[Rfam]
RNA: ZMP/ZTP riboswitch aptamer (pfl RNA motif)
Nucleotides: 092
Base pairs, nucleotide, nucleotide: 004053005052006051007050008049009048010047011046012045015042016041017080018079019078020077021076027038028037029036030035069087070086071085072084073083
Number, partner (000 for none) and nucleotide at each position: 001000a002000u003000g004053c005052u006051u007050u008049c009048a010047g011046g012045c013000a014000a015042c016041u017080g018079g019078c020077g021076a022000a023000c024000g025000a026000u027038g028037u029036g030035g031000a032000g033000u034000a035030c036029c037028a038027c039000a040000g041016g042015g043000a044000a045012g046011c047010c048009u049008g050007a051006a052005a053004g054000a055000g056000a057000g058000g059000c060000g061000g062000a063000a064000g065000c066000a067000a068000g069087c070086a071085g072084c073083c074000g075000c076021u077020c078019g079018c080017c081000u082000g083073g084072g085071c086070u087069g088000g089000g090000a091000c092000a